Overview:
This 43-nucleotide RNA sequence from Mamastrovirus ovis belongs to the Rfam family "Coronavirus 3' stem-loop II-like motif (s2m)". Pairs were carried over by alignment from the consensus structure, which is taken from published work. The family is grouped with related families in Rfam's "Coronavirus 3' UTR". It is one of the family's seed sequences.
[Rfam]
RNA sequence: CAAUCCCGAGGCCACGCCGAGUAGGAUCGAGGGUACAGGAUUG
Number, nucleotide and partner (000 for none) at each position: 001c000002a042003a041004u040005c039006c038007c000008g000009a000010g000011g034012c033013c032014a000015c029016g028017c025018c024019g000020a000021g000022u000023a000024g018025g017026a000027u000028c016029g015030a000031g000032g013033g012034u011035a000036c000037a000038g006039g005040a004041u003042u002043g000